[Rfam]
RNA: Histone 3' UTR stem-loop
Organism: Marmota monax
RNA sequence: CCAAAGGCUCUUUUCAGAGCCACUCAAACUUUCUAAGGAGCUGCA
Dot-bracket structure: .....((((((....))))))........................